[Rfam]
RNA: Small nucleolar RNA Z102/R77
RNA sequence: GAAUGGGAUGAUGACUUGGAUUAUGUUUCCCUAUUGGUUUGAUUUGCCAGAAUGAUGGCUUCAAAUGUAUUAGCUCUAGCUGAUCAUUC
Number, nucleotide and partner (000 for none) at each position: 001g000002a088003a087004u086005g085006g000007g000008a000009u000010g000011a000012u000013g000014a000015c000016u000017u000018g000019g000020a000021u000022u000023a000024u000025g000026u000027u000028u000029c000030c000031c000032u000033a000034u000035u000036g000037g000038u000039u000040u000041g062042a000043u000044u000045u000046g059047c058048c057049a000050g000051a000052a000053u000054g000055a000056u000057g048058g047059c046060u000061u000062c041063a000064a000065a000066u000067g000068u000069a000070u000071u000072a000073g000074c000075u000076c000077u000078a000079g000080c000081u000082g000083a000084u000085c005086a004087u003088u002089c000